[Rfam]
Description: This 293-nucleotide sequence from Jaculus jaculus belongs to the Rfam family "Mason-Pfizer monkey virus packaging signal". About the family: This family represents a group of sequences that are related to the Mason-Pfizer monkey virus (MPMV) packaging signal. The packaging signal is located in the 5' UTR and is required for specific RNA encapsidation. Taxonomically the source falls in Jaculus (Eukaryota, Amniota, Rodentia, Dipodinae). By type it is a cis-regulatory element. On this family, see Mustafa et al., Virus Res 2004: "Mutational analysis of the predicted secondary RNA structure of the Mason-Pfizer monkey virus packaging signal".
RNA sequence: UGGCGCCUGAACAUGGGGCUCAAGGUACAAAGUGUAACCUGGAUGUCGCACACCCCCUGCAUUGGAUCGCCACCUCAUCGGUGAGUGAAGAUCCACAUGCAGAUCACUGCAGGAGUGCCCACCUGUGAUACAGAUCUGGAGAGGUAAGAAAAGCAAUGCAAUUAUGGGACAAGCAUUAAGUAAGCACAAAUUGUUUGUUGAAGGGCUUAAAACUUCUCUCAAGACACAAGGAACACAGGUUAAGAAAAAAGAUUUAGUGAAAUUCUUUGUCUUUUUAGAAGAUGACUGUCCCU
Numbered sequence: 001u002g003g004c005g006c007c008u009g010a011a012c013a014u015g016g017g018g019c020u021c022a023a024g025g026u027a028c029a030a031a032g033u034g035u036a037a038c039c040u041g042g043a044u045g046u047c048g049c050a051c052a053c054c055c056c057c058u059g060c061a062u063u064g065g066a067u068c069g070c071c072a073c074c075u076c077a078u079c080g081g082u083g084a085g086u087g088a089a090g091a092u093c094c095a096c097a098u099g100c101a102g103a104u105c106a107c108u109g110c111a112g113g114a115g116u117g118c119c120c121a122c123c124u125g126u127g128a129u130a131c132a133g134a135u136c137u138g139g140a141g142a143g144g145u146a147a148g149a150a151a152a153g154c155a156a157u158g159c160a161a162u163u164a165u166g167g168g169a170c171a172a173g174c175a176u177u178a179a180g181u182a183a184g185c186a187c188a189a190a191u192u193g194u195u196u197g198u199u200g201a202a203g204g205g206c207u208u209a210a211a212a213c214u215u216c217u218c219u220c221a222a223g224a225c226a227c228a229a230g231g232a233a234c235a236c237a238g239g240u241u242a243a244g245a246a247a248a249a250a251g252a253u254u255u256a257g258u259g260a261a262a263u264u265c266u267u268u269g270u271c272u273u274u275u276u277a278g279a280a281g282a283u284g285a286c287u288g289u290c291c292c293u
Stems, first nucleotide, its partner, number of pairs: 007032002014027002040050002091145003098140001104134002108127005153170001157168001159166002178219001180216001182214001227269007237255005278293001281290003